Rfam assigns this 145-nucleotide RNA sequence from Pararhodobacter marinus to the family "FMN riboswitch aptamer (RFN element)". The family's consensus secondary structure is taken from published work.
[Rfam]
RNA sequence: GGGUGUUCUCAGGGCGGGGUGAAAUUCCCCACCGGCGGUAAGCGGGUUUCCCGCAAGCCCGCGAGCGCCCUUCAUGGUGAAGGGGUCAGCAGAUCCGGUGCAAUUCCGGGGCCGACGGUCACAGUCCGGAUGGAAGAGAACCAUG
Numbered sequence: 001g002g003g004u005g006u007u008c009u010c011a012g013g014g015c016g017g018g019g020u021g022a023a024a025u026u027c028c029c030c031a032c033c034g035g036c037g038g039u040a041a042g043c044g045g046g047u048u049u050c051c052c053g054c055a056a057g058c059c060c061g062c063g064a065g066c067g068c069c070c071u072u073c074a075u076g077g078u079g080a081a082g083g084g085g086u087c088a089g090c091a092g093a094u095c096c097g098g099u100g101c102a103a104u105u106c107c108g109g110g111g112c113c114g115a116c117g118g119u120c121a122c123a124g125u126c127c128g129g130a131u132g133g134a135a136g137a138g139a140a141c142c143a144u145g
Stems, first nucleotide, its partner, number of pairs: 005141006017029003031125002033114002035062004057112002065090002094110005116128003